Shown here is a 115-nucleotide RNA sequence from Cellulomonas sp. Leaf395, a member of the family "SAM riboswitch aptamer (S box leader)".
[Rfam]
RNA sequence: CCACCAUCCAGAGCGGCUGAGAGAUCUGGCUCGACGACGCCGCAGCAACCCGCGGGCACCUGUGCCCGGCCGAGGGUGCUACCGCCAGGACCGAUGAGACGAGGGCUUCGAUGAG
Numbered sequence: 001c002c003a004c005c006a007u008c009c010a011g012a013g014c015g016g017c018u019g020a021g022a023g024a025u026c027u028g029g030c031u032c033g034a035c036g037a038c039g040c041c042g043c044a045g046c047a048a049c050c051c052g053c054g055g056g057c058a059c060c061u062g063u064g065c066c067c068g069g070c071c072g073a074g075g076g077u078g079c080u081a082c083c084g085c086c087a088g089g090a091c092c093g094a095u096g097a098g099a100c101g102a103g104g105g106c107u108u109c110g111a112u113g114a115g
Base pairs, nucleotide, nucleotide: 005113006112007111008110013043014042015041016040017039021032022031023030026088027087028086029085044080045079046078047077049076050075051072052071084109089106091104092103
About this RNA:
The organism belongs to Cellulomonas, within Bacteria. A search with the family's covariance model found it, with a score of 48 bits. The SAM riboswitch is found upstream of a number of genes which code for proteins involved in methionine or cysteine biosynthesis in Gram-positive bacteria.